[Rfam]
Group I catalytic intron: a 295-nucleotide RNA from Chaetomium globosum. The organism belongs to Chaetomium globosum, within Eukaryota. A search with the family's covariance model found it, with a score of 86 bits.

RNA sequence: UUUCUAUGGUCUUAUAUUGAACAAUGGCCAUAACUGUAGUGAACCUAUGGUUAAAAAUCAUCAAAUUGCGGGAAACUCCCAAAGGAAUCUUAACCAAGUAAGUAUGGUAACAUAACUUAUGGCACAGGUAAUGACUCGUGGUAUGGUAAAAUCAAGAUUUAUUAUUCAAUGGACAAUCCGCAGCCAAGUGCCGAAUACUUAAGUACCGGUAUGCAGUUCAUCGACUAGACGGUGGUUGGUGUUAUUAUUAUUAAUAAUGCUUAAGGUAUAGUCAGCCCCCACUUGAAAGAGUGCA
Numbered sequence: 001u002u003u004c005u006a007u008g009g010u011c012u013u014a015u016a017u018u019g020a021a022c023a024a025u026g027g028c029c030a031u032a033a034c035u036g037u038a039g040u041g042a043a044c045c046u047a048u049g050g051u052u053a054a055a056a057a058u059c060a061u062c063a064a065a066u067u068g069c070g071g072g073a074a075a076c077u078c079c080c081a082a083a084g085g086a087a088u089c090u091u092a093a094c095c096a097a098g099u100a101a102g103u104a105u106g107g108u109a110a111c112a113u114a115a116c117u118u119a120u121g122g123c124a125c126a127g128g129u130a131a132u133g134a135c136u137c138g139u140g141g142u143a144u145g146g147u148a149a150a151a152u153c154a155a156g157a158u159u160u161a162u163u164a165u166u167c168a169a170u171g172g173a174c175a176a177u178c179c180g181c182a183g184c185c186a187a188g189u190g191c192c193g194a195a196u197a198c199u200u201a202a203g204u205a206c207c208g209g210u211a212u213g214c215a216g217u218u219c220a221u222c223g224a225c226u227a228g229a230c231g232g233u234g235g236u237u238g239g240u241g242u243u244a245u246u247a248u249u250a251u252u253a254a255u256a257a258u259g260c261u262u263a264a265g266g267u268a269u270a271g272u273c274a275g276c277c278c279c280c281a282c283u284u285g286a287a288a289g290a291g292u293g294c295a
Stems, first nucleotide, its partner, number of pairs: 001023001036045001056237005062231001067182006077173003183217002188212002191209002197204002221274001223273005239260009280293005
Dot-bracket structure: (.....................)............(........)..........(((((.(....((((((....(((...........................................................................................)))...))))))((...((.((....((....))...)).))...))...[.[[[[[...).))))).(((((((((....)))))))))........]]]]]].....(((((....)))))..